The record is a 127-nucleotide RNA from Galbula dea, which matches "Small nucleolar RNA SNORA55" in Rfam. ACA55 is a member of the H/ACA class of snoRNA that guide the sites of modification of uridines to pseudouridines. A search with the family's covariance model found it, with a score of 62 bits.
[Rfam]
RNA sequence: GCUCCUGAAUCUUGGGUAUUCUUUGAUGUGCAGUGAAGGUCUGGGGGCAGUUGGUGCUGCAGUACAGCAGUGGAAAUGGGUUGGUUUCCACUGGUUUGGAAUUGAUCUUUACACCUCUGCAACAUUU
Numbered sequence: 001g002c003u004c005c006u007g008a009a010u011c012u013u014g015g016g017u018a019u020u021c022u023u024u025g026a027u028g029u030g031c032a033g034u035g036a037a038g039g040u041c042u043g044g045g046g047g048c049a050g051u052u053g054g055u056g057c058u059g060c061a062g063u064a065c066a067g068c069a070g071u072g073g074a075a076a077u078g079g080g081u082u083g084g085u086u087u088c089c090a091c092u093g094g095u096u097u098g099g100a101a102u103u104g105a106u107c108u109u110u111a112c113a114c115c116u117c118u119g120c121a122a123c124a125u126u127u
Stems, first nucleotide, its partner, number of pairs: 001057002004054002013047001017043002021039002067120004072115001078108008088099003
Dot-bracket structure: ((.((.......(...((..((...............))..))...).....)).)).........((((.(.....((((((((..(((......))).))))))))......).)))).......